[Rfam]
RNA sequence: AUUGGUAUGAUGCAGAAACUCAGGACCGAUGUCCAUUGAUUUUUCACAAAGAUGAUUCUUACAACCAGCUACUUCUGACUAAU
Numbered sequence: 001a002u003u004g005g006u007a008u009g010a011u012g013c014a015g016a017a018a019c020u021c022a023g024g025a026c027c028g029a030u031g032u033c034c035a036u037u038g039a040u041u042u043u044u045c046a047c048a049a050a051g052a053u054g055a056u057u058c059u060u061a062c063a064a065c066c067a068g069c070u071a072c073u074u075c076u077g078a079c080u081a082a083u
Stems, first nucleotide, its partner, number of pairs: 001083005
This 83-nucleotide RNA from Hordeum vulgare belongs to the Rfam family "Small nucleolar RNA R12". Gene Ontology terms of the family: RNA processing and nucleolus. It scores 56 bits against the family's covariance model. The literature on the family includes a 2003 paper in Nucleic Acids Res by Chen et al., "The high diversity of snoRNAs in plants: identification and comparative study of 120 snoRNA genes from Oryza sativa". It is annotated as a C/D-box small nucleolar RNA. Rfam describes the family as follows. snoR12 is a C/D box small nucleolar RNA, which acts as a methylation guide for 25S ribosomal RNA in plants. snoR12 has been alternatively named snoZ44 in Arabidopsis and snoZ131 in rice. Pairs were carried over by alignment from the consensus structure, which was predicted with PFOLD. NCBI's taxonomy places the organism under Eukaryota, Spermatophyta, Liliopsida, Poales, Hordeum vulgare.